[Rfam]
RNA sequence: GGGGCCGAACUGGAUUCGACCGGACAGGGAACGUGCGUUUGCGGCGCGUCGAGGAGCAUGCUGGCCUCGUAAAAAGCAUGCAACACAAUGAUUGCUAACAGCAAUUACGCUCUCGCUGCCUAACCAUGGCGGCAUGAGCCCCACUGGACGCCUGAUACGGCGGGGCUCAAACGACUUCAGGCUGGCAGAGAUCCGCCGUCCGCGGGGGUCACCUGCGAGAAAACACCGGGGACUGGGCUUGGGGAAAGGGCGCGGGCGCUCGCUCUUCAAGCCGAGAUCAAACCGCCCGAUACACGCGUAGAGGCGCGCACCGACUGCCACGGGACGGGGGUUCGAUUCCCCCCGGCUCCAUUC
Dot-bracket structure: (((((((............((((.(((.....((((((..((..((((([[[[[.((((((...]]]]]......)))))).............................((..(((((.........)))))..))[[[[[.[[[...((((((..]]].]]]]]..........))))))..((((.........[[[[.[.........))))...........].]]]]..((((((((((..(((....[..[)))..)))))))))).........]....].....))))).....))))))))...))).).)))...(((((.......))))))))))))....
Description
transfer-messenger RNA: a 354-nucleotide RNA sequence from a Phycisphaerales bacterium. Rfam classes the family as a non-coding RNA gene. NCBI's taxonomy places the organism under Bacteria, Pseudomonadati, Planctomycetota, Phycisphaerae, Phycisphaerales. About the family: Bacterial tmRNA, also known as 10Sa RNA or SsrA, is named for its dual tRNA and mRNA-like properties. Its role is to liberate the mRNA from a stalled ribosome. To accomplish this part of the tmRNA is used as a reading frame that ends in a translation stop signal. Pairs were carried over by alignment from the consensus structure, which is taken from published work.